[Rfam]
RNA sequence: CACCAGGCGUAAACAAUCCGCAGAAACUCUGCGCCUGAAAGCAGCCGGCGACGGUGAGGUGGUUUGCUCUAAAUCUUAAAUGCUAGUGGAACUUUCUGCGAGGCGGUCAAAUUGCGGGGAACUCGCGAAGCAUUUUACUACCAAGCCAGUCUCGCGAGGGAUUGGUGGCCGGACGUAACUAUUCCGGGGAUGGUAAUAAGGUAAUUUGUAUGUGAUUAUCCGCAGCGAAGCCUCUCCUUUUAAGGAGUGGAACGUUCAGAGACUAAACGGCCGUCGGUCCAUUGUAGCUAUGGGCUCAAGAUAUAGUCCGGGCAGCCGCGAAAGUGGUUG
Numbered sequence: 001c002a003c004c005a006g007g008c009g010u011a012a013a014c015a016a017u018c019c020g021c022a023g024a025a026a027c028u029c030u031g032c033g034c035c036u037g038a039a040a041g042c043a044g045c046c047g048g049c050g051a052c053g054g055u056g057a058g059g060u061g062g063u064u065u066g067c068u069c070u071a072a073a074u075c076u077u078a079a080a081u082g083c084u085a086g087u088g089g090a091a092c093u094u095u096c097u098g099c100g101a102g103g104c105g106g107u108c109a110a111a112u113u114g115c116g117g118g119g120a121a122c123u124c125g126c127g128a129a130g131c132a133u134u135u136u137a138c139u140a141c142c143a144a145g146c147c148a149g150u151c152u153c154g155c156g157a158g159g160g161a162u163u164g165g166u167g168g169c170c171g172g173a174c175g176u177a178a179c180u181a182u183u184c185c186g187g188g189g190a191u192g193g194u195a196a197u198a199a200g201g202u203a204a205u206u207u208g209u210a211u212g213u214g215a216u217u218a219u220c221c222g223c224a225g226c227g228a229a230g231c232c233u234c235u236c237c238u239u240u241u242a243a244g245g246a247g248u249g250g251a252a253c254g255u256u257c258a259g260a261g262a263c264u265a266a267a268c269g270g271c272c273g274u275c276g277g278u279c280c281a282u283u284g285u286a287g288c289u290a291u292g293g294g295c296u297c298a299a300g301a302u303a304u305a306g307u308c309c310g311g312g313c314a315g316c317c318g319c320g321a322a323a324g325u326g327g328u329u330g
Stems, first nucleotide, its partner, number of pairs: 005036007013028001040068005102275005108269001113224006123215005225255002233249001238245002259309001261308005277295006284288001315328005
A member of the RNA family "Group I catalytic intron" from Pseudocercospora eumusae, 330 nucleotides long.
The match comes from Rfam's covariance-model search (86 bits).
Lineage of the source: Eukaryota > Ascomycota > dothideomyceta > Dothideomycetidae > Pseudocercospora.
Rfam's curators write: Group I catalytic introns are large self-splicing ribozymes. They catalyse their own excision from mRNA, tRNA and rRNA precursors in a wide range of organisms. The core secondary structure consists of 9 paired regions (P1-P9).
For this family Rfam cites "Self-splicing of group I introns" (Cech, Annu Rev Biochem, 1990).
Gene Ontology term of the family: Group I intron splicing.